RNA: Small nucleolar RNA SNORD66
RNA sequence: CUCCGGUGAUGAGCUCCUGUUUGUGCCACGUGUCUGGGCCACUGAUCCACAGUGAUGGGAAUGAGGGACUGAGGAG
Numbered sequence: 001c002u003c004c005g006g007u008g009a010u011g012a013g014c015u016c017c018u019g020u021u022u023g024u025g026c027c028a029c030g031u032g033u034c035u036g037g038g039c040c041a042c043u044g045a046u047c048c049a050c051a052g053u054g055a056u057g058g059g060a061a062u063g064a065g066g067g068a069c070u071g072a073g074g075a076g
Stems, first nucleotide, its partner, number of pairs: 001076004
Dot-bracket structure: ((((....................................................................))))